[Rfam]
RNA: HNH endonuclease-associated RNA and ORF (HEARO) RNA
RNA sequence: GUCAAUGACCCCACCCAAAUCACUACGUGAUUCUGGAUGGGGCUUGAAAUAAGAAGCUUUCAUGCAUCUGUUUCAAGCCUGAUUGACUAGCCUGAGUCUUAACUGACUACGUUAUUUGAUAAUUAACCUUAAACAAGUUGAAAUAGGCACUCCAGGAUGUUCAGCUCUAGUCCUGGAAUCUGCGGAUUUGUGUGAACCAGCACUGAGGUCAGGUGCAGUAUGCAGAUCGACAAACCUCUUAUAACAUUGGCGAAGGCUGAUGCUUC
Numbered sequence: 001g002u003c004a005a006u007g008a009c010c011c012c013a014c015c016c017a018a019a020u021c022a023c024u025a026c027g028u029g030a031u032u033c034u035g036g037a038u039g040g041g042g043c044u045u046g047a048a049a050u051a052a053g054a055a056g057c058u059u060u061c062a063u064g065c066a067u068c069u070g071u072u073u074c075a076a077g078c079c080u081g082a083u084u085g086a087c088u089a090g091c092c093u094g095a096g097u098c099u100u101a102a103c104u105g106a107c108u109a110c111g112u113u114a115u116u117u118g119a120u121a122a123u124u125a126a127c128c129u130u131a132a133a134c135a136a137g138u139u140g141a142a143a144u145a146g147g148c149a150c151u152c153c154a155g156g157a158u159g160u161u162c163a164g165c166u167c168u169a170g171u172c173c174u175g176g177a178a179u180c181u182g183c184g185g186a187u188u189u190g191u192g193u194g195a196a197c198c199a200g201c202a203c204u205g206a207g208g209u210c211a212g213g214u215g216c217a218g219u220a221u222g223c224a225g226a227u228c229g230a231c232a233a234a235c236c237u238c239u240u241a242u243a244a245c246a247u248u249g250g251c252g253a254a255g256g257c258u259g260a261u262g263c264u265u266c
Stems, first nucleotide, its partner, number of pairs: 001087006008080001010042002012039002015036002043077009090251003094247001095108004111245005118238002147183002151177008167256002185228009198218001200216004204211002
Dot-bracket structure: ((((((.(.((((.((..................)).)).))(((((((((.................)))))))))..).))))))..(((.(((((......))))..(((((..((...........................((..((((((((........[[.))))))))....)).(((((((((....(.((((((....)).)))).).)))))))))........))..))))).).)))...]]..........